[Rfam]
RNA sequence: UACCUUGCCACAUGGCAAAACACAAAAAUUUAUUAACUGUAUUAGUAGACUUGAACAAUGUUCAAGGUUGAAGAUUCGGUUAUAUUAGCAUACAC
Numbered sequence: 001u002a003c004c005u006u007g008c009c010a011c012a013u014g015g016c017a018a019a020a021c022a023c024a025a026a027a028a029u030u031u032a033u034u035a036a037c038u039g040u041a042u043u044a045g046u047a048g049a050c051u052u053g054a055a056c057a058a059u060g061u062u063c064a065a066g067g068u069u070g071a072a073g074a075u076u077c078g079g080u081u082a083u084a085u086u087a088g089c090a091u092a093c094a095c
Base pairs, nucleotide, nucleotide: 006017007016008015009014041075042074048069051065052064053063054062055061056060